Record summary
The family of this 78-nucleotide sequence from Ladona fulva is "mir-263 microRNA precursor family". The literature on the family includes a 2009 paper in BMC Genomics by Li et al., "Direct sequencing and expression analysis of a large number of miRNAs in Aedes aegypti and a multi-species survey of novel mosquito miRNAs". The organism belongs to Ladona, within Eukaryota.
RNA sequence: GUUCUGCAGUCCUUGGCACUGGAAGAAUUCACAGAUAGAUAUAAAUCGUGGAUUUCCUGGUGCCAAAGACAGCAGAAU
Numbered sequence: 001g002u003u004c005u006g007c008a009g010u011c012c013u014u015g016g017c018a019c020u021g022g023a024a025g026a027a028u029u030c031a032c033a034g035a036u037a038g039a040u041a042u043a044a045a046u047c048g049u050g051g052a053u054u055u056c057c058u059g060g061u062g063c064c065a066a067a068g069a070c071a072g073c074a075g076a077a078u
Base pairs, nucleotide, nucleotide: 003076004075005074006073007072009070010069013066014065015064016063017062018061020059021058022057023055025054026053029051030050031049032048034046
Dot-bracket structure: ..(((((.((..((((((.((((.((..((((.(...........).)))).))).))).))))))..)).)))))..